[Rfam]
c-di-AMP riboswitch aptamer (ydaO/yuaA leader): a 175-nucleotide RNA from Fervidicola ferrireducens.
Taxonomically the source falls in Fervidicola (Bacteria, Clostridia, Thermosediminibacterales, Thermosediminibacteraceae).
RNA sequence: CAAUCUGGAACGCUGAAUUCCUUCCGUGGCAUUUACCGCGGAGGGAAGCGGGGGACCCACUUUUUUGGGGUGAAUCCCCUUCUUAUAUGGGGGACGUUCCUGUAUUAAGAAGGGGUAGGGUUACCUCUUCAACCCGAACCCGUCAGCUAACCUCGUAAGCGUGGAAAGAGGAGGU
Number, nucleotide and partner (000 for none) at each position: 001c000002a000003a000004u000005c000006u000007g000008g000009a000010a000011c161012g160013c159014u158015g000016a000017a000018u047019u046020c045021c044022u043023u042024c041025c040026g039027u038028g037029g036030c000031a000032u000033u000034u000035a000036c029037c028038g027039c026040g025041g024042a023043g022044g021045g020046a019047a018048g156049c155050g154051g153052g152053g151054g000055a000056c000057c000058c067059a066060c000061u000062u000063u000064u000065u000066u059067g058068g141069g140070g139071u000072g000073a000074a000075u000076c115077c114078c113079c112080u111081u110082c109083u108084u107085a106086u000087a000088u000089g000090g000091g000092g000093g000094a000095c000096g000097u000098u000099c000100c000101u000102g000103u000104a000105u000106u085107a084108a083109g082110a081111a080112g079113g078114g077115g076116u000117a000118g135119g134120g133121u132122u000123a000124c000125c000126u000127c000128u000129u000130c000131a000132a121133c120134c119135c118136g000137a000138a000139c070140c069141c068142g000143u000144c000145a000146g000147c000148u000149a000150a000151c053152c052153u051154c050155g049156u048157a000158a014159g013160c012161g011162u000163g000164g000165a000166a000167a000168g000169a000170g000171g000172a000173g000174g000175u000